[Rfam]
RNA sequence: CGUUAACUGAGUAUAUGGGGAUGAAUGUCCGACAUUCAACGAUAAGAAUGUGCGAAAAAAAAAUGGGGGACAAAAUCCCCCAUUUCGUGGCUAACU
Number, nucleotide and partner (000 for none) at each position: 001c000002g000003u000004u000005a000006a000007c000008u038009g000010a036011g035012u034013a000014u000015a000016u032017g000018g030019g029020g028021a000022u000023g000024a000025a000026u000027g000028u020029c019030c018031g000032a016033c000034a012035u011036u010037c000038a008039a000040c000041g000042a000043u000044a000045a000046g000047a000048a000049u000050g000051u000052g000053c000054g000055a000056a000057a000058a000059a000060a000061a085062a084063a083064u082065g081066g080067g079068g078069g077070a076071c000072a000073a000074a000075a000076u070077c069078c068079c067080c066081c065082a064083u063084u062085u061086c000087g000088u000089g000090g000091c000092u000093a000094a000095c000096u000
RNA: sraA
Organism: Rahnella aquatilis